[Rfam]
Shown here is a 246-nucleotide RNA from Aspergillus nomiae, a member of the family "Small nucleolar RNA snR191".
NCBI's taxonomy places the organism under Eukaryota, Ascomycota, Pezizomycotina, Aspergillus, Aspergillus nomiae.
Pairs were carried over by alignment from the consensus structure, which was predicted with WAR.
Rfam links the family to the GO terms nucleolus and RNA processing.

RNA sequence: UGCCAUUGCUAAGUCAAGGCUUCUUCCAACGACUACAUGUCGUGCUAUUCUCCAUGGGAGUCUGUCUGUUACAGCUUUGGUAGAUUGACGCUGGCCCGCGCCGACCUUCUUUCUGAAGUUAGGCUGAUGGGUUUUCGUUUUGAAAGCUUGUCGUAAGGGCCGAGCUGUGCUCCGUUUUUGAGUUGAGUCCUGCUUCAGCCAUCCGGCUGCUUCGUAGCAGGUCUCUUAGUAACGUUACACACAUUC
Numbered sequence: 001u002g003c004c005a006u007u008g009c010u011a012a013g014u015c016a017a018g019g020c021u022u023c024u025u026c027c028a029a030c031g032a033c034u035a036c037a038u039g040u041c042g043u044g045c046u047a048u049u050c051u052c053c054a055u056g057g058g059a060g061u062c063u064g065u066c067u068g069u070u071a072c073a074g075c076u077u078u079g080g081u082a083g084a085u086u087g088a089c090g091c092u093g094g095c096c097c098g099c100g101c102c103g104a105c106c107u108u109c110u111u112u113c114u115g116a117a118g119u120u121a122g123g124c125u126g127a128u129g130g131g132u133u134u135u136c137g138u139u140u141u142g143a144a145a146g147c148u149u150g151u152c153g154u155a156a157g158g159g160c161c162g163a164g165c166u167g168u169g170c171u172c173c174g175u176u177u178u179u180g181a182g183u184u185g186a187g188u189c190c191u192g193c194u195u196c197a198g199c200c201a202u203c204c205g206g207c208u209g210c211u212u213c214g215u216a217g218c219a220g221g222u223c224u225c226u227u228a229g230u231a232a233c234g235u236u237a238c239a240c241a242c243a244u245u246c
Base pairs, nucleotide, nucleotide: 003080004079005078017067018066019065020064023060024059025058026057027056029043030042031041032040033039091162094160095159096158097157100124101123102122104120106118107117108116109115126152127151131147132146133145134144135143136142137141167240168239169238173234174233175232185225186224187223191219192218193217194216196209197208198207199206200205